[Rfam]
RNA sequence: GGGGGGACUCAGCGCCCCCCAAAAUUU
Numbered sequence: 001g002g003g004g005g006g007a008c009u010c011a012g013c014g015c016c017c018c019c020c021a022a023a024a025u026u027u
Stems, first nucleotide, its partner, number of pairs: 001020006012027001014025001
ribosomal frameshift site: a 27-nucleotide sequence from Catharus fuscescens.
The family's consensus secondary structure is taken from published work.
Gene Ontology term of the family: viral translational frameshifting.
Rfam classes the family as a frameshift element.
A reference for the family is Bekaert and Rousset (2005), "An extended signal involved in eukaryotic -1 frameshifting operates through modification of the E site tRNA", Mol Cell.
The match comes from Rfam's covariance-model search (35 bits).